A member of the RNA family "Archaeal large subunit ribosomal RNA" from Vulcanisaeta moutnovskia, 100 nucleotides of a longer RNA. The family's consensus secondary structure is taken from published work. NCBI's taxonomy places the organism under Archaea, Thermoproteati, Thermoproteota, Thermoproteales, Vulcanisaeta moutnovskia. The sequence is in the family's curated seed alignment.
[Rfam]
RNA sequence: GGGGCGGCCUGAAAGGAUGCCUUCCUCCGAAGGAAACCGGGGUGAACCCGGGAGUACGAGGAGGAAGGUCCAAGGUCGCCCCUUCCGUCUAGAAACACGG
Numbered sequence: 001g002g003g004g005c006g007g008c009c010u011g012a013a014a015g016g017a018u019g020c021c022u023u024c025c026u027c028c029g030a031a032g033g034a035a036a037c038c039g040g041g042g043u044g045a046a047c048c049c050g051g052g053a054g055u056a057c058g059a060g061g062a063g064g065a066a067g068g069u070c071c072a073a074g075g076u077c078g079c080c081c082c083u084u085c086c087g088u089c090u091a092g093a094a095a096c097a098c099g100g
Base pairs, nucleotide, nucleotide: 001082002081003080004079005078006077007076008075009074010073015071016070022066023065024064025063026062027061028060032057037051038050039049040048041047085100086099087098088097